This 48-nucleotide RNA sequence from Lederbergia lenta belongs to the Rfam family "Bacillus-plasmid RNA".
RNA sequence: UCUGUCAACGGUACCGGACCAUAGGGAGGAGUUGAUAGACUCACUUUC
Numbered sequence: 001u002c003u004g005u006c007a008a009c010g011g012u013a014c015c016g017g018a019c020c021a022u023a024g025g026g027a028g029g030a031g032u033u034g035a036u037a038g039a040c041u042c043a044c045u046u047u048c
Base pairs, nucleotide, nucleotide: 001039002038003037004036005035006034007033008032009031
Dot-bracket structure: (((((((((.....................))))))))).........